[Rfam]
RNA sequence: UAUGCUACUACAACAUAAUCUAAUGAACCAGGUCAGGGUAGGAAUACAGCAGCCUUAAUUUAGCUCUUAUGUGUGUAGUGGCUUUUUU
Number, nucleotide and partner (000 for none) at each position: 001u000002a084003u000004g000005c081006u080007a079008c078009u077010a076011c073012a000013a072014c071015a070016u069017a068018a067019u000020c063021u062022a061023a060024u000025g000026a000027a000028c000029c000030a055031g054032g053033u052034c000035a000036g000037g000038g047039u046040a045041g000042g000043a000044a000045u040046a039047c038048a000049g000050c000051a000052g033053c032054c031055u030056u000057a000058a000059u000060u023061u022062a021063g020064c000065u000066c000067u018068u017069a016070u015071g014072u013073g011074u000075g000076u010077a009078g008079u007080g006081g005082c000083u000084u002085u000086u000087u000088u000
Overview
Rfam assigns this 88-nucleotide RNA sequence from Erysipelothrix sp. HDW6B to the family "Bacterial small signal recognition particle RNA". NCBI's taxonomy places the organism under Bacteria, Bacillati, Bacillota, Erysipelotrichales, Erysipelothrix. The base pairs follow the family's consensus structure, which is taken from published work. Rfam's curators write: The signal recognition particle (SRP) is a universally conserved ribonucleoprotein involved in the co-translational targeting of proteins to membranes. The family's RNA type in Rfam is non-coding RNA gene. On this family, see Rosenblad et al., Nucleic Acids Res 2003: "SRPDB: Signal Recognition Particle Database".